[Rfam]
RNA sequence: GGCGACAUGAAGAGCUCUUGUAAUCUGAAGAUAUCUGAUGUUGAUACAUACAUUCAUGGUCUUCAAAGUUCUCUCAUUGCU
Number, nucleotide and partner (000 for none) at each position: 001g081002g080003c079004g078005a077006c000007a000008u000009g000010a000011a000012g000013a000014g000015c000016u000017c000018u000019u000020g000021u000022a000023a000024u000025c000026u000027g000028a000029a000030g000031a000032u000033a000034u000035c000036u000037g000038a000039u000040g000041u000042u000043g000044a000045u000046a000047c000048a000049u000050a000051c000052a000053u000054u000055c000056a000057u000058g000059g000060u000061c000062u000063u000064c000065a000066a000067a000068g000069u000070u000071c000072u000073c000074u000075c000076a000077u005078u004079g003080c002081u001
RNA: Small nucleolar RNA R160
Organism: Miscanthus lutarioriparius